[Rfam]
RNA: RT-6 RNA
RNA sequence: UGCCCCACACGAAAGGUGUGGGGGAAGGAGAUUGUUGUCAACCUGUCUGACAGAAUAUUCACCAGAAUUUCUUGC
Numbered sequence: 001u002g003c004c005c006c007a008c009a010c011g012a013a014a015g016g017u018g019u020g021g022g023g024g025a026a027g028g029a030g031a032u033u034g035u036u037g038u039c040a041a042c043c044u045g046u047c048u049g050a051c052a053g054a055a056u057a058u059u060c061a062c063c064a065g066a067a068u069u070u071c072u073u074g075c
Base pairs, nucleotide, nucleotide: 003023004022005021006020007019008018009017010016054070055069057068058067059066060065
Dot-bracket structure: ..((((((((.....))))))))..............................((.((((....)))))).....